[Rfam]
RNA sequence: GCGGAAGGCCGGACGGCCGCUUGCAGCGAUGCGAGAGGAAAGUCCGGACUCACCGAAGCACCGGUGCCGGGUAACUCCCGGGCAGGGCAACCUGACGGACAGCGCCACAGAGAACAGACCGCCACGCCUUCGGGCGCGGCAAGGGUGAAACGGUGGGGUAAGAGCCCACCGGGGGACUGGCAACAGGACCCGCAUGGCAAGCCCCACCGGGAGCAAUGCCGAAUAGGGAUCACGCGCGCCUCCGGGCGCAGGGCCGCUUCCGCCCGAGCGAUCCGGGUUGGCAGCUAGAGCCACGCGGCAACGCGCGGCCCAGAGGAAUGGCCGUCUGAGGCCGGGGCGACCCGGCCAAGACCAGAAUCCGGCUUACAGGCCUUCCGCGCAA
Numbered sequence: 001g002c003g004g005a006a007g008g009c010c011g012g013a014c015g016g017c018c019g020c021u022u023g024c025a026g027c028g029a030u031g032c033g034a035g036a037g038g039a040a041a042g043u044c045c046g047g048a049c050u051c052a053c054c055g056a057a058g059c060a061c062c063g064g065u066g067c068c069g070g071g072u073a074a075c076u077c078c079c080g081g082g083c084a085g086g087g088c089a090a091c092c093u094g095a096c097g098g099a100c101a102g103c104g105c106c107a108c109a110g111a112g113a114a115c116a117g118a119c120c121g122c123c124a125c126g127c128c129u130u131c132g133g134g135c136g137c138g139g140c141a142a143g144g145g146u147g148a149a150a151c152g153g154u155g156g157g158g159u160a161a162g163a164g165c166c167c168a169c170c171g172g173g174g175g176a177c178u179g180g181c182a183a184c185a186g187g188a189c190c191c192g193c194a195u196g197g198c199a200a201g202c203c204c205c206a207c208c209g210g211g212a213g214c215a216a217u218g219c220c221g222a223a224u225a226g227g228g229a230u231c232a233c234g235c236g237c238g239c240c241u242c243c244g245g246g247c248g249c250a251g252g253g254c255c256g257c258u259u260c261c262g263c264c265c266g267a268g269c270g271a272u273c274c275g276g277g278u279u280g281g282c283a284g285c286u287a288g289a290g291c292c293a294c295g296c297g298g299c300a301a302c303g304c305g306c307g308g309c310c311c312a313g314a315g316g317a318a319u320g321g322c323c324g325u326c327u328g329a330g331g332c333c334g335g336g337g338c339g340a341c342c343c344g345g346c347c348a349a350g351a352c353c354a355g356a357a358u359c360c361g362g363c364u365u366a367c368a369g370g371c372c373u374u375c376c377g378c379g380c381a382a
Stems, first nucleotide, its partner, number of pairs: 001378010011367001012326007020035006040365003044362005049213003057259002062209005067081005082096001083094004097204002102202002104198003119144002121140003125136004152170006171193001172191003177186003217283004227274005251265004290309003294305004

This 382-nucleotide RNA from Antarctobacter aquimaris belongs to the Rfam family "Bacterial RNase P class A". The organism belongs to Antarctobacter, within Bacteria. A reference for the family is Brown (1999), "The Ribonuclease P Database", Nucleic Acids Res.